[Rfam]
The family of this 242-nucleotide RNA sequence from Jatropha curcas is "RNase MRP". Rfam's curators write: RNase MRP is an enzymatically active ribonucleoprotein with two distinct roles in eukaryotes. In mitochondria it plays a direct role in the initiation of mitochondrial DNA replication. In the nucleus it is involved in precursor rRNA processing, where it cleaves the internal transcribed spacer 1 between 18S and 5.8S rRNAs. Despite distinct functions, RNase MRP has been shown to be evolutionarily related to RNase P. Like eukaryotic RNase P, RNase MRP is not catalytically active without associated protein subunits. The source organism's lineage runs through Eukaryota, eudicotyledons, fabids, Crotonoideae and Jatropha. Gene Ontology terms of the family: ribonuclease MRP activity, ribonuclease MRP complex and rRNA processing.
RNA sequence: GCCAUGGAUCGGAGUGAACGGGUGAUUACAGUUGCACCCAGGAAAGUCCCCGGGCCCGAAUGCAGAGAUGCAUCCCUGGAAACAGGAGCCAUUUCGAGUGGAGGUUCACCCGUCUACUGCGGGGAUCUGAGACGUGUGUGGAGAUCCUUUGAACCUUACGCCGAAAUGAUUUGGCCGUCAACUCACAGUUAUUCACUCUGUCCGCAUCGUGGACUAACUGAACGGGGCUUACGAUCUCAUGG
Numbered sequence: 001g002c003c004a005u006g007g008a009u010c011g012g013a014g015u016g017a018a019c020g021g022g023u024g025a026u027u028a029c030a031g032u033u034g035c036a037c038c039c040a041g042g043a044a045a046g047u048c049c050c051c052g053g054g055c056c057c058g059a060a061u062g063c064a065g066a067g068a069u070g071c072a073u074c075c076c077u078g079g080a081a082a083c084a085g086g087a088g089c090c091a092u093u094u095c096g097a098g099u100g101g102a103g104g105u106u107c108a109c110c111c112g113u114c115u116a117c118u119g120c121g122g123g124g125a126u127c128u129g130a131g132a133c134g135u136g137u138g139u140g141g142a143g144a145u146c147c148u149u150u151g152a153a154c155c156u157u158a159c160g161c162c163g164a165a166a167u168g169a170u171u172u173g174g175c176c177g178u179c180a181a182c183u184c185a186c187a188g189u190u191a192u193u194c195a196c197u198c199u200g201u202c203c204g205c206a207u208c209g210u211g212g213a214c215u216a217a218c219u220g221a222a223c224g225g226g227g228c229u230u231a232c233g234a235u236c237u238c239a240u241g242g
Stems, first nucleotide, its partner, number of pairs: 002242004007238002012198006020039005044230003048227004061072004073088001075086004090168003098159003102156003113152002116149001124146004134139001200214006